[Rfam]
RNA sequence: GUGGGGCCAGGUGGCUGUGGGCACAGCUGGGGUGGACACAGCAGCCAUGCAGAGCAGGCUUCUGACCCCUGUGUCGCCCUCUUCUCCAG
Numbered sequence: 001g002u003g004g005g006g007c008c009a010g011g012u013g014g015c016u017g018u019g020g021g022c023a024c025a026g027c028u029g030g031g032g033u034g035g036a037c038a039c040a041g042c043a044g045c046c047a048u049g050c051a052g053a054g055c056a057g058g059c060u061u062c063u064g065a066c067c068c069c070u071g072u073g074u075c076g077c078c079c080u081c082u083u084c085u086c087c088a089g
Stems, first nucleotide, its partner, number of pairs: 002088005010080002013078003017074002019068003022064002024057001026055003030050001032048004
Notes
This 89-nucleotide RNA sequence from Callithrix jacchus belongs to the Rfam family "mir-1227 microRNA precursor family". Rfam links the family to the GO terms miRNA-mediated post-transcriptional gene silencing and RISC complex. Lineage of the source: Eukaryota > Deuterostomia > Theria > Simiiformes > Callithrix. On this family, see Berezikov et al., Mol Cell 2007: "Mammalian mirtron genes". Pairs were carried over by alignment from the consensus structure, which was predicted with RNAalifold.